[Rfam]
RNA sequence: CUAGACCUCCAUCAAAGGAGUAGUUCCCCAUCCAGGAGCUACUUUACCAUAUUCCGAAUUC
Dot-bracket structure: ................(((((((((((.......)))))))))))................
Numbered sequence: 001c002u003a004g005a006c007c008u009c010c011a012u013c014a015a016a017g018g019a020g021u022a023g024u025u026c027c028c029c030a031u032c033c034a035g036g037a038g039c040u041a042c043u044u045u046a047c048c049a050u051a052u053u054c055c056g057a058a059u060u061c
Stems, first nucleotide, its partner, number of pairs: 017045011